[Rfam]
RNA sequence: ACAUAUUAGUGGGGUUAGGGUCUGAAAAACUCAUAAAGUUAGUGCUGUUUAUCAGCUUCUUCUCUUGAAUAUCCAACGAGUUGGAGUUAAAUCAUGGCACUAAAUGC
Numbered sequence: 001a002c003a004u005a006u007u008a009g010u011g012g013g014g015u016u017a018g019g020g021u022c023u024g025a026a027a028a029a030c031u032c033a034u035a036a037a038g039u040u041a042g043u044g045c046u047g048u049u050u051a052u053c054a055g056c057u058u059c060u061u062c063u064c065u066u067g068a069a070u071a072u073c074c075a076a077c078g079a080g081u082u083g084g085a086g087u088u089a090a091a092u093c094a095u096g097g098c099a100c101u102a103a104a105u106g107c
Stems, first nucleotide, its partner, number of pairs: 041101007054088006062080003